[Rfam]
RNA sequence: GGUCUAAAGGGUACGUAGGCUGUUUCAUAAGACUGUAUUUGUUUCAAACUAAACGAAUAAAAACUUUCCAGUAACUAUGAAACUAGAGUGUAAUGGAGGAAAGAGGAACUCCGAGAGUAGGGAUGGAAUCUGUUGAUCUUCGGAAGACCGCUUAAGGCGAAGGCUUCUUUCUAACUAAACACUGACGCUGAGGUACGAAAGUAUGGGGAGCAAAACGGAUUAGAUACCCGUGUAGUCCAUACCGUAAACGAUGAGUGUCUUAGAUUGGUUAUUAAAUCAGUCUAUAAAUGUAGGUUAAAGCACUCCACCUGGGGAGUACUGCCGCAAGGUUGAAACCCAAAAGUAU
Numbered sequence: 001g002g003u004c005u006a007a008a009g010g011g012u013a014c015g016u017a018g019g020c021u022g023u024u025u026c027a028u029a030a031g032a033c034u035g036u037a038u039u040u041g042u043u044u045c046a047a048a049c050u051a052a053a054c055g056a057a058u059a060a061a062a063a064c065u066u067u068c069c070a071g072u073a074a075c076u077a078u079g080a081a082a083c084u085a086g087a088g089u090g091u092a093a094u095g096g097a098g099g100a101a102a103g104a105g106g107a108a109c110u111c112c113g114a115g116a117g118u119a120g121g122g123a124u125g126g127a128a129u130c131u132g133u134u135g136a137u138c139u140u141c142g143g144a145a146g147a148c149c150g151c152u153u154a155a156g157g158c159g160a161a162g163g164c165u166u167c168u169u170u171c172u173a174a175c176u177a178a179a180c181a182c183u184g185a186c187g188c189u190g191a192g193g194u195a196c197g198a199a200a201g202u203a204u205g206g207g208g209a210g211c212a213a214a215a216c217g218g219a220u221u222a223g224a225u226a227c228c229c230g231u232g233u234a235g236u237c238c239a240u241a242c243c244g245u246a247a248a249c250g251a252u253g254a255g256u257g258u259c260u261u262a263g264a265u266u267g268g269u270u271a272u273u274a275a276a277u278c279a280g281u282c283u284a285u286a287a288a289u290g291u292a293g294g295u296u297a298a299a300g301c302a303c304u305c306c307a308c309c310u311g312g313g314g315a316g317u318a319c320u321g322c323c324g325c326a327a328g329g330u331u332g333a334a335a336c337c338c339a340a341a342a343g344u345a346u
Base pairs, nucleotide, nucleotide: 001309002308003307009306011196012195013194014193016190018189019188020187022083023082024081025080026079027078028077030076031075032072033071034070035069037067087183088182089181091178093176098172099171100170101169102168103167104166105149106148110144111143112142113141114140115139120131121130122129154165157164158163201242202241203240204239205238206237210236211235215231216230217229218228253305254304255303256302257301258300261284262283263282264281265280266279267278268277269276270275288295289294311338312337313336321330322329323328
RNA: Bacterial small subunit ribosomal RNA, nucleotides 488 to 833